rmf RNA: a 131-nucleotide RNA from Pseudomonas rhizosphaerae. It scores 113 bits against the family's covariance model.
[Rfam]
RNA sequence: ACGUUUAGAAAUCACCUCAGGUCGUCGCUGCAAUGGCGAUGGCAUCACUGCUCGCCACGCCGGCAGCGAGCGCGAUACCGGCAGACCAUCUGCCUGGCCUCACACGAGGCCGACGGGACAUUACAGUCAAU
Numbered sequence: 001a002c003g004u005u006u007a008g009a010a011a012u013c014a015c016c017u018c019a020g021g022u023c024g025u026c027g028c029u030g031c032a033a034u035g036g037c038g039a040u041g042g043c044a045u046c047a048c049u050g051c052u053c054g055c056c057a058c059g060c061c062g063g064c065a066g067c068g069a070g071c072g073c074g075a076u077a078c079c080g081g082c083a084g085a086c087c088a089u090c091u092g093c094c095u096g097g098c099c100u101c102a103c104a105c106g107a108g109g110c111c112g113a114c115g116g117g118a119c120a121u122u123a124c125a126g127u128c129a130a131u
Stems, first nucleotide, its partner, number of pairs: 021043009050071006080094006096111006
Dot-bracket structure: ....................(((((((((.....)))))))))......((((((..........))))))........((((((...)))))).((((((....))))))....................

Pairs were carried over by alignment from the consensus structure, which is taken from published work. It is annotated as a cis-regulatory element.